[Rfam]
RNA sequence: GGAUCGAUGAUAACUCCCUCCUUCUGCAUUCCAUGGAAAAGCUGAACAAAAUGAGUAAGAACUCCCUACCGUCAUUCUCAUCAAAACUGAGGUCC
Numbered sequence: 001g002g003a004u005c006g007a008u009g010a011u012a013a014c015u016c017c018c019u020c021c022u023u024c025u026g027c028a029u030u031c032c033a034u035g036g037a038a039a040a041g042c043u044g045a046a047c048a049a050a051a052u053g054a055g056u057a058a059g060a061a062c063u064c065c066c067u068a069c070c071g072u073c074a075u076u077c078u079c080a081u082c083a084a085a086a087c088u089g090a091g092g093u094c095c
Stems, first nucleotide, its partner, number of pairs: 001095005028056004034048002